[Rfam]
Shown here is a 67-nucleotide RNA from Equus asinus, a member of the family "tRNA".
Transfer RNA (tRNA) molecules are approximately 80 nucleotides in length. Their secondary structure includes four short double-helical elements and three loops (D, anti-codon, and T loops). Further hydrogen bonds mediate the characteristic L-shaped molecular structure. tRNAs have two regions of fundamental functional importance: the anti-codon, which is responsible for specific mRNA codon recognition, and the 3' end, to which the tRNAs corresponding amino acid is attached (by aminoacyl-tRNA synthetases). tRNAs cope with the degeneracy of the genetic code in two manners: having more than one tRNA (with a specific anti-codon) for a particular amino acid; and 'wobble' base-pairing, i.e. permitting non-standard base-pairing at the 3rd anti-codon position.
It is annotated as a transfer RNA.
Taxonomically the source falls in Equus (Eukaryota, Teleostomi, Tetrapoda, Boreoeutheria).
Rfam links the family to the GO term triplet codon-amino acid adaptor activity.
Pairs were carried over by alignment from the consensus structure, which is taken from published work.

RNA sequence: GGUAAGAUGGCUGAGUAAGCAUUAGAUUGUAAAUCUAAAGACAGAGGUUGGAAUCCUCUUCUUAUCA
Numbered sequence: 001g002g003u004a005a006g007a008u009g010g011c012u013g014a015g016u017a018a019g020c021a022u023u024a025g026a027u028u029g030u031a032a033a034u035c036u037a038a039a040g041a042c043a044g045a046g047g048u049u050g051g052a053a054u055c056c057u058c059u060u061c062u063u064a065u066c067a
Stems, first nucleotide, its partner, number of pairs: 001066007010020003022038005043059005